[Rfam]
RNA sequence: CUGCAGCCAAUUAAGCCAACUGAGUUCCUUUCUUCAUGGGGGCCCAGUGUGCAAUGGUUGCAAACAGCAGCUUCCCUGGUAGUGAUGCAGACUGUUUGUUGUAUGGGUUGCUCUAAGGGACCUUAGAGACAGUC
Numbered sequence: 001c002u003g004c005a006g007c008c009a010a011u012u013a014a015g016c017c018a019a020c021u022g023a024g025u026u027c028c029u030u031u032c033u034u035c036a037u038g039g040g041g042g043c044c045c046a047g048u049g050u051g052c053a054a055u056g057g058u059u060g061c062a063a064a065c066a067g068c069a070g071c072u073u074c075c076c077u078g079g080u081a082g083u084g085a086u087g088c089a090g091a092c093u094g095u096u097u098g099u100u101g102u103a104u105g106g107g108u109u110g111c112u113c114u115a116a117g118g119g120a121c122c123u124u125a126g127a128g129a130c131a132g133u134c
Base pairs, nucleotide, nucleotide: 002053003052004051005050019048020047021046022045025042026041027040028039078122079121080120088110089109090108092106093105
Rfam assigns this 134-nucleotide RNA sequence from Chlorocebus sabaeus to the family "Small nucleolar RNA SNORA70".
Rfam links the family to the GO terms RNA processing and nucleolus.
snoRNA U70 seems to be exclusive to mammals and is a member of the H/ACA class of snoRNA which contain H (ANANNA) and ACA box motifs. H/ACA box snoRNAs are involved in the conversion of uridines to pseudouridines (5-ribosyluracil) a constituent of structural RNAs (transfer, ribosomal, small nuclear, and small nucleolar).